[Rfam]
This 79-nucleotide RNA from Medicago truncatula belongs to the Rfam family "MIR5269 microRNA precursor family". The match comes from Rfam's covariance-model search (63 bits).
RNA sequence: UUGGUUUAAAUCAUUGUGGGUUUACACUUUAAAAAUUGAACAAACACAAAGUGGUGGAACAUACAUUAAUAUCGUCCAA
Number, nucleotide and partner (000 for none) at each position: 001u079002u078003g077004g076005u000006u074007u000008a072009a000010a070011u069012c000013a067014u000015u065016g064017u063018g062019g000020g000021u000022u057023u056024a055025c053026a052027c051028u050029u049030u048031a000032a000033a000034a000035a000036u000037u000038g000039a000040a000041c000042a000043a000044a000045c000046a000047c000048a030049a029050a028051g027052u026053g025054g000055u024056g023057g022058a000059a000060c000061a000062u018063a017064c016065a015066u000067u013068a000069a011070u010071a000072u008073c000074g006075u000076c004077c003078a002079a001